[Rfam]
RNA: tRNA
Organism: Euglena gracilis
RNA sequence: GGGCUAUUAGCUCAGUUGGUUAGAGCAUACCCUUGAUAAGGGUAAGGUCGCUAGUUCAAGUCUAGCAUGGCCCU
Numbered sequence: 001g002g003g004c005u006a007u008u009a010g011c012u013c014a015g016u017u018g019g020u021u022a023g024a025g026c027a028u029a030c031c032c033u034u035g036a037u038a039a040g041g042g043u044a045a046g047g048u049c050g051c052u053a054g055u056u057c058a059a060g061u062c063u064a065g066c067a068u069g070g071c072c073c074u
Stems, first nucleotide, its partner, number of pairs: 001073007010026004028044005050066005